The record is an 80-nucleotide sequence from Loa loa, which matches "mir-250 microRNA precursor family" in Rfam.
Taxonomically the source falls in Loa (Eukaryota, Opisthokonta, Bilateria, Spirurina).
RNA sequence: UGAGCUUGAACCGUCAGUGGUCUUGUGAUUCGUUGAGGAAAUUUUGAAUCGAAUCACAGCCAACUGGUGGUUCAGCUUGU
Dot-bracket structure: ..((.(((..((.(((((.(.((.(((((.((((............)).)).))))))).).))))).))..))).))..
Overview:
The family's consensus secondary structure was predicted with RNAalifold.